[Rfam]
RNA sequence: CAAACAUAGCAAAUGAUCGCUUCAUUUUUUGAAGAGGAAAGUCCGAGCUGCAAUAGGACAAAGAUUCCAUCUAAUGGAUGGCUAGGGUGACCUAAGGGAAAGUGCAACAGAAAGAAAACUACCAUAUUUUAUAUGGAAAAGGUGAAACGGUAGAGUAAGAGCCUACCAGUAGCUUUGGUAACAAAGCUAGCUAUGUAAACCCAAUCUGCAGCAAGAAGGGGUGGUUUUUGUCUUAUAAUAUAACCCUUCGCUUGAGUUUGUUUGCAAAAACAAAAUUAGAUAAAUGAUCAUUCAAGACAAAACUCGGCUUAUAGCUAUGUUUUACUU
Numbered sequence: 001c002a003a004a005c006a007u008a009g010c011a012a013a014u015g016a017u018c019g020c021u022u023c024a025u026u027u028u029u030u031g032a033a034g035a036g037g038a039a040a041g042u043c044c045g046a047g048c049u050g051c052a053a054u055a056g057g058a059c060a061a062a063g064a065u066u067c068c069a070u071c072u073a074a075u076g077g078a079u080g081g082c083u084a085g086g087g088u089g090a091c092c093u094a095a096g097g098g099a100a101a102g103u104g105c106a107a108c109a110g111a112a113a114g115a116a117a118a119c120u121a122c123c124a125u126a127u128u129u130u131a132u133a134u135g136g137a138a139a140a141g142g143u144g145a146a147a148c149g150g151u152a153g154a155g156u157a158a159g160a161g162c163c164u165a166c167c168a169g170u171a172g173c174u175u176u177g178g179u180a181a182c183a184a185a186g187c188u189a190g191c192u193a194u195g196u197a198a199a200c201c202c203a204a205u206c207u208g209c210a211g212c213a214a215g216a217a218g219g220g221g222u223g224g225u226u227u228u229u230g231u232c233u234u235a236u237a238a239u240a241u242a243a244c245c246c247u248u249c250g251c252u253u254g255a256g257u258u259u260g261u262u263u264g265c266a267a268a269a270a271c272a273a274a275a276u277u278a279g280a281u282a283a284a285u286g287a288u289c290a291u292u293c294a295a296g297a298c299a300a301a302a303c304u305c306g307g308c309u310u311a312u313a314g315c316u317a318u319g320u321u322u323u324a325c326u327u
Stems, first nucleotide, its partner, number of pairs: 002322009011312001012292007020034005039310003043307005048211004057234002060231001062207005067081005082096001083094004097202002102200002104196003119141002122136006149167005169191001170189008215249004226238002229235001257274007
RNA: Bacterial RNase P class A